Shown here is an 85-nucleotide sequence from Ensete ventricosum, a member of the family "Small nucleolar RNA SNORD25". The match comes from Rfam's covariance-model search (65 bits). A reference for the family is Qu et al. (2001), "Identification of 10 novel snoRNA gene clusters from Arabidopsis thaliana", Nucleic Acids Res. Lineage of the source: Eukaryota > Magnoliopsida > Liliopsida > Musaceae > Ensete. Its family is annotated with RNA processing and nucleolus in the Gene Ontology.
RNA sequence: GACAACGACAAUGAGUCUAUUGACCUGUAAUGAUUAUUGCAUAUAUGAUUGCAUAAUCAAAGAACAUCCAAGCGAUUGAGUUGUC
Numbered sequence: 001g002a003c004a005a006c007g008a009c010a011a012u013g014a015g016u017c018u019a020u021u022g023a024c025c026u027g028u029a030a031u032g033a034u035u036a037u038u039g040c041a042u043a044u045a046u047g048a049u050u051g052c053a054u055a056a057u058c059a060a061a062g063a064a065c066a067u068c069c070a071a072g073c074g075a076u077u078g079a080g081u082u083g084u085c
Base pairs, nucleotide, nucleotide: 002084003083004082005081006080